[Rfam]
RNA sequence: GUUUCGAUCAACUCAUUCUGCUGGUUGUUAUGCCAAACAUUGAAAUUUAAGCAUCACAACCUCCUAGAAAGAGUGGAUCGAUCC
Numbered sequence: 001g002u003u004u005c006g007a008u009c010a011a012c013u014c015a016u017u018c019u020g021c022u023g024g025u026u027g028u029u030a031u032g033c034c035a036a037a038c039a040u041u042g043a044a045a046u047u048u049a050a051g052c053a054u055c056a057c058a059a060c061c062u063c064c065u066a067g068a069a070a071g072a073g074u075g076g077a078u079c080g081a082u083c084c
Stems, first nucleotide, its partner, number of pairs: 008076003012073003016069005023061002026058003030054003
The record is an 84-nucleotide RNA sequence from Caenorhabditis brenneri, which matches "mir-67 microRNA precursor family" in Rfam. The family has 33 seed sequences and 196 matches in Rfam 15.1. Pairs were carried over by alignment from the consensus structure, which was predicted with RNAalifold. The organism belongs to Caenorhabditis, within Eukaryota. The match comes from Rfam's covariance-model search (63 bits).